Small nucleolar RNA Z122: a 102-nucleotide RNA from Solanum lycopersicum.
By type it is a C/D-box small nucleolar RNA.
The literature on the family includes a 1999 paper in Mol Cell Biol by Qu et al., "Seven novel methylation guide small nucleolar RNAs are processed from a common polycistronic transcript by Rat1p and RNase III in yeast".
It scores 43 bits against the family's covariance model.
The family's consensus secondary structure was predicted with PFOLD.
[Rfam]
RNA sequence: UUUGGGAAAUGCUGAGUGCUAUUUUUUUUUUGAAUACACACACUGAGAAGAUGGCAGGUUUUGCUGAUCAAUCUGUUUUUUGCACGUCAGUCUGAUCCCUUA
Numbered sequence: 001u002u003u004g005g006g007a008a009a010u011g012c013u014g015a016g017u018g019c020u021a022u023u024u025u026u027u028u029u030u031u032g033a034a035u036a037c038a039c040a041c042a043c044u045g046a047g048a049a050g051a052u053g054g055c056a057g058g059u060u061u062u063g064c065u066g067a068u069c070a071a072u073c074u075g076u077u078u079u080u081u082g083c084a085c086g087u088c089a090g091u092c093u094g095a096u097c098c099c100u101u102a
Stems, first nucleotide, its partner, number of pairs: 001102001004099004